[Rfam]
Rfam assigns this 66-nucleotide sequence from Pseudopedobacter saltans to the family "Fluoride riboswitch aptamer (crcB RNA motif)". Pairs were carried over by alignment from the consensus structure, which is taken from published work.

RNA sequence: UAAUCAAAAGGAAAUGGUGUUCUUCCUUACCCAACCGCUUUUUAAGCUGAUGACGCCUGAUUAAUG
Numbered sequence: 001u002a003a004u005c006a007a008a009a010g011g012a013a014a015u016g017g018u019g020u021u022c023u024u025c026c027u028u029a030c031c032c033a034a035c036c037g038c039u040u041u042u043u044a045a046g047c048u049g050a051u052g053a054c055g056c057c058u059g060a061u062u063a064a065u066g
Stems, first nucleotide, its partner, number of pairs: 010026004016057006037047003